[Rfam]
RNA sequence: AAAGUGGCGUACGCGACGGCCAUGGACUGGUUCAUCGCGGUGUGCUACGCCUUC
Dot-bracket structure: .((..(((.((.((.((.((.(((((....))))).)).))..)))).))))).
Description:
The family of this 54-nucleotide RNA sequence from Vicugna pacos is "Editing element of GABA-3 exon 9". Taxonomically the source falls in Vicugna (Eukaryota, Deuterostomia, Vertebrata, Artiodactyla). The sequence is in the family's curated seed alignment. The base pairs follow the family's consensus structure, which is taken from published work. Rfam classes the family as a cis-regulatory element.